[Rfam]
RNA: S15-Flavobacteria ribosomal protein leader
Nucleotides: 067
Stems, first nucleotide, its partner, number of pairs: 014033003018030002
Number, partner (000 for none) and nucleotide at each position: 001000u002000a003000u004000c005000u006000u007000u008000g009000c010000a011000g012000c013000u014033u015032g016031a017000a018030u019029a020000c021000g022000a023000a024000a025000a026000a027000c028000g029019u030018a031016u032015c033014a034000a035000u036000a037000c038000a039000u040000a041000a042000a043000a044000a045000u046000c047000a048000u049000u050000u051000a052000c053000a054000a055000c056000a057000a058000u059000a060000u061000u062000a063000g064000c065000a066000u067000g